[Rfam]
RNA sequence: CAUUUCAAAUGAAAAAGUCGUCAACAACAAAGUUGUAGAACUCAUCGAGAUCUACAAUUUUUAUUUUAGUCAUUUGUUCAUCCGACAAAGCGAUAGUAACAUUGUCCAUAGAUUUUACAUAUCUCUCUUACAGUUUCAUAAACUAUAAGACAUAUAUGUAAAAUCUGUGGACAAUGUUACUAUCACUUCGUCGGAUGAACAAAUGACCAAAAUAAAAGUUAUAUAUCUUGAUUAGUUCUACAACUUUUAUGUUCAUGACUUUUUCAGCUGAAAUC
Numbered sequence: 001c002a003u004u005u006c007a008a009a010u011g012a013a014a015a016a017g018u019c020g021u022c023a024a025c026a027a028c029a030a031a032g033u034u035g036u037a038g039a040a041c042u043c044a045u046c047g048a049g050a051u052c053u054a055c056a057a058u059u060u061u062u063a064u065u066u067u068a069g070u071c072a073u074u075u076g077u078u079c080a081u082c083c084g085a086c087a088a089a090g091c092g093a094u095a096g097u098a099a100c101a102u103u104g105u106c107c108a109u110a111g112a113u114u115u116u117a118c119a120u121a122u123c124u125c126u127c128u129u130a131c132a133g134u135u136u137c138a139u140a141a142a143c144u145a146u147a148a149g150a151c152a153u154a155u156a157u158g159u160a161a162a163a164u165c166u167g168u169g170g171a172c173a174a175u176g177u178u179a180c181u182a183u184c185a186c187u188u189c190g191u192c193g194g195a196u197g198a199a200c201a202a203a204u205g206a207c208c209a210a211a212a213u214a215a216a217a218g219u220u221a222u223a224u225a226u227c228u229u230g231a232u233u234a235g236u237u238c239u240a241c242a243a244c245u246u247u248u249a250u251g252u253u254c255a256u257g258a259c260u261u262u263u264u265c266a267g268c269u270g271a272a273a274u275c
Base pairs, nucleotide, nucleotide: 014262015261016260017259018258019257020256021255023253024252026250030246031245032244033243034242035241036240037239038238039237040236041235042234044232045231046230047229048228049227050226051225053223056220057219058218059217060216061215062214063213064212065211066210067209069207070206071205072204073203074202075201077199078198079197080196081195083193084192085191086190088188089187090186092184094182095181096180097179098178099177101175102174103173104172105171106170107169108168109167110166111165112164114162115161117159118158119157120156121155122154132144133143134142135141136140
Dot-bracket structure: .............((((((((.((.(...(((((((((((((.((((((((.(..((((((((((((.(((((((.(((((.((((.(((.(.((((((.((((((((((((.((.((((((.........(((((...))))).........)))))).)).)))))))))))).)))))).).))).)))).))))).))))))).))))))))))))..).)))))))).)))))))))))))...).)).)))))))).............
Description:
Shown here is a 275-nucleotide RNA sequence from Miscanthus lutarioriparius, a member of the family "MIR821 microRNA precursor family". Its family is annotated with RISC complex and miRNA-mediated post-transcriptional gene silencing in the Gene Ontology. It scores 269 bits against the family's covariance model. Lineage of the source: Eukaryota > Tracheophyta > Spermatophyta > commelinids > Miscanthus.